[Rfam]
The family of this 38-nucleotide RNA sequence from Daucus carota is "Plastid psbT antisense RNA".
Rfam 15.1 lists 1,866 matches to the family in 287 species.
Rfam's curators write: Plastid-psbT-asRNA is an antisense RNA (asRNA) motif reported in Plastids It has been shown that psbT expression is controlled by two antisense RNAs originated from psbN transcription by the nuclear-encoded polymerase (NEP), in which the short antisense RNA hybridizes to psbT CDS, thereby stabilizing psbT transcript while blocking its translation during photooxidative stress.
RNA sequence: GUAGUAGGAUAUCCUAGUUUUUGGAAUGCUCCAAAUUU
Numbered sequence: 001g002u003a004g005u006a007g008g009a010u011a012u013c014c015u016a017g018u019u020u021u022u023g024g025a026a027u028g029c030u031c032c033a034a035a036u037u038u
Stems, first nucleotide, its partner, number of pairs: 003018001005016004020035006

NCBI's taxonomy places the organism under Eukaryota, Streptophytina, Embryophyta, Apiales, Daucus carota.